[Rfam]
RNA sequence: ACUCAGGCACGAUCCUGCCCGGCGUGGUGCGUGUGCGCACGCGCCAGGGCGUGGUCCUAAGAAUAUGAGGGAUUGCACGCCCGCCACGUGGGGCGGGAACCGACCUGAAGUGUCAACCCUGAGGGA
Numbered sequence: 001a002c003u004c005a006g007g008c009a010c011g012a013u014c015c016u017g018c019c020c021g022g023c024g025u026g027g028u029g030c031g032u033g034u035g036c037g038c039a040c041g042c043g044c045c046a047g048g049g050c051g052u053g054g055u056c057c058u059a060a061g062a063a064u065a066u067g068a069g070g071g072a073u074u075g076c077a078c079g080c081c082c083g084c085c086a087c088g089u090g091g092g093g094c095g096g097g098a099a100c101c102g103a104c105c106u107g108a109a110g111u112g113u114c115a116a117c118c119c120u121g122a123g124g125g126a
Stems, first nucleotide, its partner, number of pairs: 001111003004107004013098007030088004
The record is a 126-nucleotide sequence from Corynebacterium atypicum, which matches "L31-Corynebacteriaceae ribosomal protein leader" in Rfam.
The sequence is in the family's curated seed alignment.
NCBI's taxonomy places the organism under Bacteria, Bacillati, Actinomycetes, Corynebacteriaceae, Corynebacterium.